c-di-AMP riboswitch aptamer (ydaO/yuaA leader): a 176-nucleotide RNA from Streptomyces sp. TverLS-915. This family represents a conserved RNA structure found upstream of the ydaO and yuaA genes in Bacillus subtilis and related genes in other bacteria.
RNA sequence: GCCGCCCGGACGCCAGGUCGACACGGAGUGGAUCGGCGGGAGUGGAGGACCCGAGCACGGCGGGUCGGGCCCGGUAACGGGCGCCGGUCCUUGGGGUGAAGCCGCGUGAGCGGCCGGGCAUCUUCGCCAGUCCGAACCCGACAGGUCAUCCUUCACAGGCGGUUGACGAAGGGUUA
Number, nucleotide and partner (000 for none) at each position: 001g160002c159003c158004g000005c040006c039007c038008g037009g000010a000011c000012g000013c000014c000015a000016g000017g000018u000019c000020g000021a000022c000023a000024c000025g000026g000027a000028g000029u000030g000031g000032a000033u000034c000035g000036g000037c008038g007039g006040g005041a000042g156043u155044g154045g153046a152047g151048g000049a000050c000051c000052c093053g092054a091055g090056c000057a000058c000059g000060g000061c000062g000063g000064g000065u000066c000067g000068g000069g000070c000071c000072c000073g000074g000075u000076a000077a000078c000079g000080g000081g000082c000083g000084c000085c000086g000087g000088u000089c000090c055091u054092u053093g052094g139095g138096g137097u000098g000099a000100a000101g000102c113103c112104g111105c110106g000107u000108g000109a000110g105111c104112g103113g102114c000115c000116g133117g132118g131119c130120a000121u000122c000123u000124u000125c000126g000127c000128c000129a000130g119131u118132c117133c116134g000135a000136a000137c096138c095139c094140g000141a000142c000143a000144g000145g000146u000147c000148a000149u000150c000151c047152u046153u045154c044155a043156c042157a000158g003159g002160c001161g000162g000163u000164u000165g000166a000167c000168g000169a000170a000171g000172g000173g000174u000175u000176a000